This 78-nucleotide RNA from Pogona vitticeps belongs to the Rfam family "Small nucleolar RNA SNORD81". The family's RNA type in Rfam is C/D-box small nucleolar RNA. Rfam 15.1 lists 317 matches to the family in 202 species. Gene Ontology terms of the family: RNA processing and nucleolus. NCBI's taxonomy places the organism under Eukaryota, Deuterostomia, Dipnotetrapodomorpha, Tetrapoda, Pogona. On this family, see Smith and Steitz, Mol Cell Biol 1998: "Classification of gas5 as a multi-small-nucleolar-RNA (snoRNA) host gene and a member of the 5'-terminal oligopyrimidine gene family reveals common features of snoRNA host genes". The match comes from Rfam's covariance-model search (54 bits). Clan: SNORD26 clan. The base pairs follow the family's consensus structure, which was predicted with PFOLD.
RNA sequence: GAAUAGACACAUGAUGAUAACUUAAUAUUGAACUCUCUCUCUGAUUCCAUGAUGGAAAAUCCAAGGUCUGAUCUGUUC
Numbered sequence: 001g002a003a004u005a006g007a008c009a010c011a012u013g014a015u016g017a018u019a020a021c022u023u024a025a026u027a028u029u030g031a032a033c034u035c036u037c038u039c040u041c042u043g044a045u046u047c048c049a050u051g052a053u054g055g056a057a058a059a060u061c062c063a064a065g066g067u068c069u070g071a072u073c074u075g076u077u078c
Stems, first nucleotide, its partner, number of pairs: 001078007